[Rfam]
RNA sequence: AUAAUUCUUCAGGAUAGAGUGUAAUUCUCAACUGGCGGUUAUAGCCCGUGGGCUUUUAAGUUUUUAAGAGCAGGUUCGGUGGAAUUCCGAAGUCAACAGUAUAGUCUGGAUAAAAGGAAGAGUAUA
Numbered sequence: 001a002u003a004a005u006u007c008u009u010c011a012g013g014a015u016a017g018a019g020u021g022u023a024a025u026u027c028u029c030a031a032c033u034g035g036c037g038g039u040u041a042u043a044g045c046c047c048g049u050g051g052g053c054u055u056u057u058a059a060g061u062u063u064u065u066a067a068g069a070g071c072a073g074g075u076u077c078g079g080u081g082g083a084a085u086u087c088c089g090a091a092g093u094c095a096a097c098a099g100u101a102u103a104g105u106c107u108g109g110a111u112a113a114a115a116g117g118a119a120g121a122g123u124a125u126a
Stems, first nucleotide, its partner, number of pairs: 004123007017029003031105002033095002035049004044093002052071003075091005097108003
A member of the RNA family "FMN riboswitch aptamer (RFN element)" from Clostridium sp. SM-530-WT-3G, 126 nucleotides long. The organism belongs to Clostridium, within Bacteria. The RFN element is a highly conserved domain that is found frequently in the 5'-untranslated regions of prokaryotic mRNAs that encode for flavin mononucleotide (FMN) biosynthesis and transport proteins. It scores 95 bits against the family's covariance model.